[Rfam]
RNA sequence: GUGUGUGUGUGGAUGGUGUUCAGCACUAAGGACAGGGUAUUUGUGUGUGUGGAUAGUGUUCAGCACCAAGGACAGGGGUAUUUGUAU
Numbered sequence: 001g002u003g004u005g006u007g008u009g010u011g012g013a014u015g016g017u018g019u020u021c022a023g024c025a026c027u028a029a030g031g032a033c034a035g036g037g038u039a040u041u042u043g044u045g046u047g048u049g050u051g052g053a054u055a056g057u058g059u060u061c062a063g064c065a066c067c068a069a070g071g072a073c074a075g076g077g078g079u080a081u082u083u084g085u086a087u
Stems, first nucleotide, its partner, number of pairs: 004074003014068007022060007030048001032046003
RNA: mir-2060 microRNA precursor family
Organism: Branchiostoma belcheri